[Rfam]
RNA sequence: GCGGGAUGAGGUAGUAGGUUGUGUGGUUUCAGGGGAGUGAUUUUGCCCCAAUCAGAAGAUAACUAUACAGCCUACUGCCUUCCCUGG
Numbered sequence: 001g002c003g004g005g006a007u008g009a010g011g012u013a014g015u016a017g018g019u020u021g022u023g024u025g026g027u028u029u030c031a032g033g034g035g036a037g038u039g040a041u042u043u044u045g046c047c048c049c050a051a052u053c054a055g056a057a058g059a060u061a062a063c064u065a066u067a068c069a070g071c072c073u074a075c076u077g078c079c080u081u082c083c084c085u086g087g
Stems, first nucleotide, its partner, number of pairs: 002086004008081020032049004052057001
RNA: let-7 microRNA precursor family
Organism: Ornithorhynchus anatinus